[Rfam]
Small nucleolar RNA Z159/U59: a 92-nucleotide RNA sequence from Striga hermonthica.
Rfam classes the family as a C/D-box small nucleolar RNA.
NCBI's taxonomy places the organism under Eukaryota, Euphyllophyta, eudicotyledons, lamiids, Striga.
The family's consensus secondary structure was predicted with PFOLD.
RNA sequence: GUCUCCGAUGAUGAUUAAAAAGCUUAUAACUUUCGUUCUUCUGAGAUAUUGAUUUGUGCUGAAACAUUUAUGGAGACCUGAACUGAGGAGAC
Numbered sequence: 001g002u003c004u005c006c007g008a009u010g011a012u013g014a015u016u017a018a019a020a021a022g023c024u025u026a027u028a029a030c031u032u033u034c035g036u037u038c039u040u041c042u043g044a045g046a047u048a049u050u051g052a053u054u055u056g057u058g059c060u061g062a063a064a065c066a067u068u069u070a071u072g073g074a075g076a077c078c079u080g081a082a083c084u085g086a087g088g089a090g091a092c
Base pairs, nucleotide, nucleotide: 003090004089005088006087